[Rfam]
RNA sequence: CUAAAAUACUAUAUUUUUUCUAUAAAAAAGGAAAAAAAUGGAAAAAAAUAC
Numbered sequence: 001c002u003a004a005a006a007u008a009c010u011a012u013a014u015u016u017u018u019u020c021u022a023u024a025a026a027a028a029a030g031g032a033a034a035a036a037a038a039u040g041g042a043a044a045a046a047a048a049u050a051c
Stems, first nucleotide, its partner, number of pairs: 014047010